[Rfam]
This 403-nucleotide RNA from Thalassococcus halodurans belongs to the Rfam family "Bacterial RNase P class A". The source organism's lineage runs through Bacteria, Pseudomonadati, Pseudomonadota, Roseobacteraceae and Thalassococcus.
RNA sequence: GUGGAGGGCUGGAUGGCCGCGGGCCUGAUGGUCCGAGGAAAGUCCGGACUCCCUGAAGCAACGGUGCCGGGUAACGCCCGGGCAGGGCAACCUGACGGAUAGCGCCACAGAAAACAGACCGCCGCGUUCACGCGGUAAGGGUGAAACGGUGGGGUAAGAGCCCACCGGGGGGCUGGUAACAGUUCCCGCACGGCAAGCCCCACCGGGAGCAAUGCCAAAUAGGGACCCCGCGCGGGGCAUGAUCUGGGGGUGACCCCGGAUAUCGCCGUAGGGCCGCUUCAGCCCGAGGGGUCCGGGUUGGCAGCUUGAACCGUUCGGCAACGGACGGUCUAGAGGAAUGGUCGUCGAACCACAGACCAUGGUUUGUGGGGAACAAAAUCCGGCUUAUAGGCUCUCCGCGCAU
Numbered sequence: 001g002u003g004g005a006g007g008g009c010u011g012g013a014u015g016g017c018c019g020c021g022g023g024c025c026u027g028a029u030g031g032u033c034c035g036a037g038g039a040a041a042g043u044c045c046g047g048a049c050u051c052c053c054u055g056a057a058g059c060a061a062c063g064g065u066g067c068c069g070g071g072u073a074a075c076g077c078c079c080g081g082g083c084a085g086g087g088c089a090a091c092c093u094g095a096c097g098g099a100u101a102g103c104g105c106c107a108c109a110g111a112a113a114a115c116a117g118a119c120c121g122c123c124g125c126g127u128u129c130a131c132g133c134g135g136u137a138a139g140g141g142u143g144a145a146a147c148g149g150u151g152g153g154g155u156a157a158g159a160g161c162c163c164a165c166c167g168g169g170g171g172g173c174u175g176g177u178a179a180c181a182g183u184u185c186c187c188g189c190a191c192g193g194c195a196a197g198c199c200c201c202a203c204c205g206g207g208a209g210c211a212a213u214g215c216c217a218a219a220u221a222g223g224g225a226c227c228c229c230g231c232g233c234g235g236g237g238c239a240u241g242a243u244c245u246g247g248g249g250g251u252g253a254c255c256c257c258g259g260a261u262a263u264c265g266c267c268g269u270a271g272g273g274c275c276g277c278u279u280c281a282g283c284c285c286g287a288g289g290g291g292u293c294c295g296g297g298u299u300g301g302c303a304g305c306u307u308g309a310a311c312c313g314u315u316c317g318g319c320a321a322c323g324g325a326c327g328g329u330c331u332a333g334a335g336g337a338a339u340g341g342u343c344g345u346c347g348a349a350c351c352a353c354a355g356a357c358c359a360u361g362g363u364u365u366g367u368g369g370g371g372a373a374c375a376a377a378a379u380c381c382g383g384c385u386u387a388u389a390g391g392c393u394c395u396c397c398g399c400g401c402a403u
Stems, first nucleotide, its partner, number of pairs: 001399010011388001012346007020035006040386003044383005049209004058279001062205005067081005082096001083094004097200002102198002104194003119140002121136006148166006167189001168187008213303004223294006271285004310329008

Notes: Rfam's curators write: Ribonuclease P (RNase P) is a ubiquitous endoribonuclease, found in archaea, bacteria and eukarya as well as chloroplasts and mitochondria.